[Rfam]
RNA sequence: UGAAUUUGUUAAUGAUUAAGUCUGUGUUGUUAGGGACAUCUGAGAUGUGAUGAACUGCCAGGGGAAAUUUCAAGACAGUCCAACAUUCA
Numbered sequence: 001u002g003a004a005u006u007u008g009u010u011a012a013u014g015a016u017u018a019a020g021u022c023u024g025u026g027u028u029g030u031u032a033g034g035g036a037c038a039u040c041u042g043a044g045a046u047g048u049g050a051u052g053a054a055c056u057g058c059c060a061g062g063g064g065a066a067a068u069u070u071c072a073a074g075a076c077a078g079u080c081c082a083a084c085a086u087u088c089a
Stems, first nucleotide, its partner, number of pairs: 001089005